[Rfam]
RNA: Editing element of GABA-3 exon 9
RNA sequence: AAAGUGGCCUACGCUACAGCUAUGGACUGGUUCAUGGCCGUGUGUUAUGCCUUU
Numbered sequence: 001a002a003a004g005u006g007g008c009c010u011a012c013g014c015u016a017c018a019g020c021u022a023u024g025g026a027c028u029g030g031u032u033c034a035u036g037g038c039c040g041u042g043u044g045u046u047a048u049g050c051c052u053u054u
Base pairs, nucleotide, nucleotide: 001054002053003052006051007050008049010047011046013045014044015042016041017040019038020037022035023034024033025032026031